[Rfam]
tRNA: a 74-nucleotide RNA from Gossypium lobatum.
RNA sequence: GCUAGAAUAGCUUAGUUUCUUAGAACAUGUGGUUAUUAACCACAACAUUGGAGGUUGAAACCCUCUUUCUAGCA
Numbered sequence: 001g002c003u004a005g006a007a008u009a010g011c012u013u014a015g016u017u018u019c020u021u022a023g024a025a026c027a028u029g030u031g032g033u034u035a036u037u038a039a040c041c042a043c044a045a046c047a048u049u050g051g052a053g054g055u056u057g058a059a060a061c062c063c064u065c066u067u068u069c070u071a072g073c074a
Base pairs, nucleotide, nucleotide: 001073002072003071004070005069006068007067010026012024013023028044029043030042031041032040050066051065052064053063054062

By type it is a transfer RNA.